[Rfam]
RNA sequence: CAACACCUAUAAAUCUUCCCGUUAACCGAGACCUAUGGGAAGUAAAAUUACGUCUCUCAUAUCCACUAGUGAAGGGAUUAGUGGAAAUACAGUAUCGC
Numbered sequence: 001c002a003a004c005a006c007c008u009a010u011a012a013a014u015c016u017u018c019c020c021g022u023u024a025a026c027c028g029a030g031a032c033c034u035a036u037g038g039g040a041a042g043u044a045a046a047a048u049u050a051c052g053u054c055u056c057u058c059a060u061a062u063c064c065a066c067u068a069g070u071g072a073a074g075g076g077a078u079u080a081g082u083g084g085a086a087a088u089a090c091a092g093u094a095u096c097g098c
Base pairs, nucleotide, nucleotide: 016041017040018039019038020037021036022035028056029055030054031053032052063084064083065082066081067080068079069078